RNA: Alphaproteobacterial ar14
Nucleotides: 122
Stems, first nucleotide, its partner, number of pairs: 007040003011036001013034005046079009089117011
Number, partner (000 for none) and nucleotide at each position: 001000c002000g003000g004000u005000u006000u007040c008039g009038c010000u011036g012000c013034a014033g015032g016031g017030c018000c019000a020000c021000c022000u023000c024000c025000u026000c027000c028000c029000g030017g031016c032015c033014u034013u035000c036011c037000a038009g039008c040007g041000g042000a043000u044000a045000a046079g047078g048077a049076g050075c051074c052073u053072a054071c055000a056000c057000u058000c059000c060000u061000c062000c063000u064000c065000c066000c067000a068000a069000a070000c071054g072053u073052a074051g075050g076049u077048u078047c079046c080000g081000u082000c083000u084000u085000u086000a087000c088000g089117a090116u091115g092114c093113c094112c095111g096110c097109c098108g099107g100000u101000c102000c103000u104000c105000c106000c107099c108098c109097g110096g111095c112094g113093g114092g115091c116090a117089u118000u119000g120000u121000u122000g